About this RNA:
Rfam assigns this 139-nucleotide RNA from Nicotiana attenuata to the family "Small nucleolar RNA snoR111". Its family is annotated with RNA processing and nucleolus in the Gene Ontology.
RNA sequence: CUGAUCGAAUGAUGAACAAGUAUUUUUUGUGUGUUUCAUCAUUUUUAUACAAAUUUACUGGAGGCAAAGUAAUAUCGGCGAGAUAUCGUUUCGGUCGUUAUUUCUUUACAUUGACGAUUUGAUUGUUGCUCGUCUACAU
Numbered sequence: 001c002u003g004a005u006c007g008a009a010u011g012a013u014g015a016a017c018a019a020g021u022a023u024u025u026u027u028u029g030u031g032u033g034u035u036u037c038a039u040c041a042u043u044u045u046u047a048u049a050c051a052a053a054u055u056u057a058c059u060g061g062a063g064g065c066a067a068a069g070u071a072a073u074a075u076c077g078g079c080g081a082g083a084u085a086u087c088g089u090u091u092c093g094g095u096c097g098u099u100a101u102u103u104c105u106u107u108a109c110a111u112u113g114a115c116g117a118u119u120u121g122a123u124u125g126u127u128g129c130u131c132g133u134c135u136a137c138a139u
Stems, first nucleotide, its partner, number of pairs: 002051002004048002007045001009042008077134001079132004085123004094118007102110001
Source information:
For this family Rfam cites "Experimental RNomics: identification of 140 candidates for small non-messenger RNAs in the plant Arabidopsis thaliana" (Marker et al., Curr Biol, 2002). Rfam classes the family as an H/ACA-box small nucleolar RNA. Rfam 15.1 lists 533 matches to the family in 223 species.